The family of this 120-nucleotide sequence from Streptomyces chumphonensis is "Streptomyces-metK RNA". The base pairs follow the family's consensus structure, which is taken from published work. It is annotated as a small RNA.

RNA sequence: GUGAGACACCUUGACCCGUCCACCCGGGCCUGCGGAUAAACUGUCAGCGGACCCGCGCGGGGCGCAGCUCCCCGACCGGGCCACCACAGAUCAGCCAGCAGCCGCUGCAACCCCAGGGAG
Numbered sequence: 001g002u003g004a005g006a007c008a009c010c011u012u013g014a015c016c017c018g019u020c021c022a023c024c025c026g027g028g029c030c031u032g033c034g035g036a037u038a039a040a041c042u043g044u045c046a047g048c049g050g051a052c053c054c055g056c057g058c059g060g061g062g063c064g065c066a067g068c069u070c071c072c073c074g075a076c077c078g079g080g081c082c083a084c085c086a087c088a089g090a091u092c093a094g095c096c097a098g099c100a101g102c103c104g105c106u107g108c109a110a111c112c113c114c115a116g117g118g119a120g
Stems, first nucleotide, its partner, number of pairs: 050082001052080004058074005096107004